[Rfam]
RNA sequence: ACCAUAGACAUCAAAAUACCAUAGACAGCAACGGAUGAAAAUCUUAAUUAUGUUGCCGAGGCAUUAUUGAUAUAUUGAACAAUUUAAACUGUUUUUUAUAUUUUUUAAUAAUGUUCAAAGGCAAUUAAUCAUUCGGUUAAUUGCUUUUCUUUUCAAAAG
Numbered sequence: 001a002c003c004a005u006a007g008a009c010a011u012c013a014a015a016a017u018a019c020c021a022u023a024g025a026c027a028g029c030a031a032c033g034g035a036u037g038a039a040a041a042u043c044u045u046a047a048u049u050a051u052g053u054u055g056c057c058g059a060g061g062c063a064u065u066a067u068u069g070a071u072a073u074a075u076u077g078a079a080c081a082a083u084u085u086a087a088a089c090u091g092u093u094u095u096u097u098a099u100a101u102u103u104u105u106u107a108a109u110a111a112u113g114u115u116c117a118a119a120g121g122c123a124a125u126u127a128a129u130c131a132u133u134c135g136g137u138u139a140a141u142u143g144c145u146u147u148u149c150u151u152u153u154c155a156a157a158a159g
Base pairs, nucleotide, nucleotide: 028056029055030054031053032052033051034043035042036041121144122143123142124141125140126139127138128137129136130135
Ribosomal protein L10 leader: a 159-nucleotide RNA sequence from Spiroplasma syrphidicola. From the family's description: This family is a putative r-protein leader autoregulatory structure found in B. subtilis and other low-GC Gram-positive bacteria. It is located in the 5' untranslated regions of mRNAs encoding ribosomal proteins L10 and L12 (rplJ-rplL). A Rho-independent transcription terminator structure that is probably involved in regulation is included at the 3' end. The family's RNA type in Rfam is cis-regulatory leader. The base pairs follow the family's consensus structure, which was predicted with CMfinder. On this family, see Zengel and Lindahl, Prog Nucleic Acid Res Mol Biol 1994: "Diverse mechanisms for regulating ribosomal protein synthesis in Escherichia coli".